[Rfam]
RNA: SAM riboswitch aptamer (S box leader)
RNA sequence: CUCUUAUCCAGAGCGGCGGAGGGAACUGGCCCGAUGAAGCCCGGCAACCCGCGGCGGAGCGCGCACGCCGCGAAGGUGCCAACUCCACCGGUGACCCCGGGAGAUAAGAG
Numbered sequence: 001c002u003c004u005u006a007u008c009c010a011g012a013g014c015g016g017c018g019g020a021g022g023g024a025a026c027u028g029g030c031c032c033g034a035u036g037a038a039g040c041c042c043g044g045c046a047a048c049c050c051g052c053g054g055c056g057g058a059g060c061g062c063g064c065a066c067g068c069c070g071c072g073a074a075g076g077u078g079c080c081a082a083c084u085c086c087a088c089c090g091g092u093g094a095c096c097c098c099g100g101g102a103g104a105u106a107a108g109a110g
Stems, first nucleotide, its partner, number of pairs: 001110008013042001015041003021032003027087003043080004048076002050072007084102001089099003